[Rfam]
RNA sequence: UCACCACUCUGGCCUUUUGGCUUAGAUCAAGUGUAGUAUCUGUUCUUAAUAGUUUAACCACUAUUAUGGAGGCAUUGCCUCCAUUCAUGGUUAUCUUAUUUUUGUCGCCCUUUCUUCUUGGCUCUGCUUGCAACCGAGGGGUGUGAUGACUGUGCCGUUGCAGUACUGGCAUGUGUUGUCGGGGGAUU
Number, nucleotide and partner (000 for none) at each position: 001u000002c000003a000004c000005c000006a000007c000008u026009c025010u024011g022012g021013c020014c019015u000016u000017u000018u000019g014020g013021c012022u011023u000024a010025g009026a008027u000028c000029a000030a000031g000032u000033g000034u000035a000036g000037u000038a000039u000040c000041u000042g000043u000044u000045c000046u000047u066048a065049a064050u063051a062052g061053u000054u000055u000056a000057a000058c000059c000060a000061c052062u051063a050064u049065u048066a047067u083068g082069g081070a080071g079072g078073c077074a000075u000076u000077g073078c072079c071080u070081c069082c068083a067084u000085u000086c000087a000088u000089g000090g000091u000092u000093a000094u000095c000096u000097u000098a000099u000100u000101u000102u000103u000104g000105u000106c000107g000108c000109c000110c000111u000112u000113u000114c141115u140116u139117c138118u137119u136120g135121g134122c000123u000124c000125u132126g131127c000128u000129u000130g000131c126132a125133a000134c121135c120136g119137a118138g117139g116140g115141g114142u000143g000144u181145g180146a179147u178148g177149a176150c000151u173152g172153u171154g170155c169156c168157g000158u000159u000160g000161c000162a000163g000164u000165a000166c000167u000168g156169g155170c154171a153172u152173g151174u000175g000176u149177u148178g147179u146180c145181g144182g000183g000184g000185g000186a000187u000188u000

Background:
U2 spliceosomal RNA: a 188-nucleotide sequence from Rhodonia placenta. The source organism's lineage runs through Eukaryota, Opisthokonta, Fungi, Agaricomycetes and Rhodonia. Pairs were carried over by alignment from the consensus structure, which is taken from published work. Rfam's curators write: U2 is a small nuclear RNA (snRNA) component of the spliceosome (involved in pre-mRNA splicing). It is annotated as a spliceosomal small nuclear RNA. Rfam links the family to the GO terms pre-mRNA branch point binding, mRNA branch site recognition and U2 snRNP. On this family, see Zwieb, Nucleic Acids Res 1997: "The uRNA database".